Rfam assigns this 76-nucleotide RNA from Poecilia reticulata to the family "mir-10 microRNA precursor family". For this family Rfam cites "An extensive class of small RNAs in Caenorhabditis elegans" (Lee and Ambros, Science, 2001).
RNA sequence: CUGUAUUCACCCUGUAGAUCCGAAUUUGUGUAAACAUGAACAGAGUCGCAAAUUCCCAUCUUGGGGAGCAUGCAGG
Numbered sequence: 001c002u003g004u005a006u007u008c009a010c011c012c013u014g015u016a017g018a019u020c021c022g023a024a025u026u027u028g029u030g031u032a033a034a035c036a037u038g039a040a041c042a043g044a045g046u047c048g049c050a051a052a053u054u055c056c057c058a059u060c061u062u063g064g065g066g067a068g069c070a071u072g073c074a075g076g
Base pairs, nucleotide, nucleotide: 002074003073004072005071006070010066011065012064016061017060018059019058022055023054024053025052026051027050028049029048030047